[Rfam]
RNA sequence: UCUUCCGCUCAAAAGAACUGUGCUAAAAUUGCAGAUUCCAGGUUCUCCUGGUUUAUGCAAUAAUGCUAGCAGAGUAUCACGUGGAAGAAGAGCAAUAGCCCUGCACCGGAAAUGAAACAGAGUCGGACCUCUUUCUUAAUGUCCAGUGGCUUAUGUUUCAAGGUCCAGAGCAACAUCA
Numbered sequence: 001u002c003u004u005c006c007g008c009u010c011a012a013a014a015g016a017a018c019u020g021u022g023c024u025a026a027a028a029u030u031g032c033a034g035a036u037u038c039c040a041g042g043u044u045c046u047c048c049u050g051g052u053u054u055a056u057g058c059a060a061u062a063a064u065g066c067u068a069g070c071a072g073a074g075u076a077u078c079a080c081g082u083g084g085a086a087g088a089a090g091a092g093c094a095a096u097a098g099c100c101c102u103g104c105a106c107c108g109g110a111a112a113u114g115a116a117a118c119a120g121a122g123u124c125g126g127a128c129c130u131c132u133u134u135c136u137u138a139a140u141g142u143c144c145a146g147u148g149g150c151u152u153a154u155g156u157u158u159c160a161a162g163g164u165c166c167a168g169a170g171c172a173a174c175a176u177c178a
Base pairs, nucleotide, nucleotide: 018074019073021071022070023069024068025067028064029063030062031061035054038051039050040049041048042047098171099170101168102167103166105164122147125144126143127142
The record is a 178-nucleotide RNA from Carassius auratus, which matches "Small nucleolar RNA SNORA81" in Rfam. It scores 103 bits against the family's covariance model. The literature on the family includes a 2005 paper in Nucleic Acids Res by Gu et al., "A novel experimental approach for systematic identification of box H/ACA snoRNAs from eukaryotes". It is annotated as an H/ACA-box small nucleolar RNA. The source organism's lineage runs through Eukaryota, Opisthokonta, Eumetazoa, Cypriniformes and Carassius. The base pairs follow the family's consensus structure, which was predicted with WAR.